[Rfam]
RNA: Mammalian CPEB3 ribozyme
RNA sequence: UGAGGGCUCAAGGCCAUAGCAGAAGCGCUUAUUGUGCGGCCAUGUCAGAUUCCAAUGAAUCUGCAAAUUCUGCU
Numbered sequence: 001u002g003a004g005g006g007c008u009c010a011a012g013g014c015c016a017u018a019g020c021a022g023a024a025g026c027g028c029u030u031a032u033u034g035u036g037c038g039g040c041c042a043u044g045u046c047a048g049a050u051u052c053c054a055a056u057g058a059a060u061c062u063g064c065a066a067a068u069u070c071u072g073c074u
Base pairs, nucleotide, nucleotide: 012041013040014039015038018074019073020072021071022070023069024068025037026036027035046063047062048061049060050059051058052057